[Rfam]
RNA sequence: CGUGCGGGACGACCCGCGCCCGUUGCUCCAUCCCGGGACGGCCCGG
Numbered sequence: 001c002g003u004g005c006g007g008g009a010c011g012a013c014c015c016g017c018g019c020c021c022g023u024u025g026c027u028c029c030a031u032c033c034c035g036g037g038a039c040g041g042c043c044c045g046g
Stems, first nucleotide, its partner, number of pairs: 001018002005016004033046005